A member of the RNA family "U5 spliceosomal RNA" from Hibiscus syriacus, 116 nucleotides long. The family's RNA type in Rfam is spliceosomal small nuclear RNA. Gene Ontology terms of the family: U5 snRNP and spliceosomal tri-snRNP complex assembly. Lineage of the source: Eukaryota > Viridiplantae > Streptophyta > Spermatophyta > Hibiscus. The match comes from Rfam's covariance-model search (73 bits). The family's consensus secondary structure is taken from published work.
[Rfam]
RNA sequence: AGUCGUGUGAUGAGCACAGAACAAACUAUUCUUUCGCCUUUUACUAAAGAAUACCGUGUGCUGUCCACUCAAAGCGGCAUACGCAUAUUUUUGAAAGGGUGUCCUCGUUGAAUGCC
Numbered sequence: 001a002g003u004c005g006u007g008u009g010a011u012g013a014g015c016a017c018a019g020a021a022c023a024a025a026c027u028a029u030u031c032u033u034u035c036g037c038c039u040u041u042u043a044c045u046a047a048a049g050a051a052u053a054c055c056g057u058g059u060g061c062u063g064u065c066c067a068c069u070c071a072a073a074g075c076g077g078c079a080u081a082c083g084c085a086u087a088u089u090u091u092u093g094a095a096a097g098g099g100u101g102u103c104c105u106c107g108u109u110g111a112a113u114g115c116c
Base pairs, nucleotide, nucleotide: 003077004076005075006074008067009066013062014061015060016059017058018057027053028052029051030050031049032048033047034046098116099115100114101113102112